[Rfam]
Nucleotides: 068
Base pairs, nucleotide, nucleotide: 002067003066004065005064006063
Number, partner (000 for none) and nucleotide at each position: 001000c002067u003066g004065u005064g006063a007000c008000a009000u010000g011000a012000u013000g014000g015000c016000c017000u018000a019000c020000c021000a022000u023000c024000u025000u026000u027000c028000g029000g030000g031000a032000c033000u034000g035000a036000c037000c038000u039000g040000g041000a042000a043000u044000g045000g046000a047000g048000a049000g050000a051000a052000g053000c054000g055000u056000c057000u058000g059000c060000u061000g062000a063006u064005c065004a066003c067002g068000a